Shown here is a 101-nucleotide sequence from Faecalibacterium sp. An121, a member of the family "THF (Tetrahydrofolate) riboswitch aptamer".
For this family Rfam cites "A eubacterial riboswitch class that senses the coenzyme tetrahydrofolate" (Ames et al., Chem Biol, 2010).
Lineage of the source: Bacteria > Bacillati > Eubacteriales > Oscillospiraceae > Faecalibacterium.
Tetrahydrofolate (THF) riboswitch was first reported for Ames et al. as an RNA motif in 5' untranslated (5'-UTR)regions of folate transport and biosynthesis genes in Firmicutes genomes.
The base pairs follow the family's consensus structure, which is taken from published work.

RNA sequence: AACAGAGUAAGGCUGUGCGCGUUAAGUGCCGCAUCAACGGGGAGUUGUGCUGCGGACGAAGGCGAAGUUUUCCCGCGGUGCACAGCCUGCAUCCCGCUGCU
Numbered sequence: 001a002a003c004a005g006a007g008u009a010a011g012g013c014u015g016u017g018c019g020c021g022u023u024a025a026g027u028g029c030c031g032c033a034u035c036a037a038c039g040g041g042g043a044g045u046u047g048u049g050c051u052g053c054g055g056a057c058g059a060a061g062g063c064g065a066a067g068u069u070u071u072c073c074c075g076c077g078g079u080g081c082a083c084a085g086c087c088u089g090c091a092u093c094c095c096g097c098u099g100c101u
Stems, first nucleotide, its partner, number of pairs: 001101001003099003010088010020077003026057002029055005035049002040094003044090001061074002064072002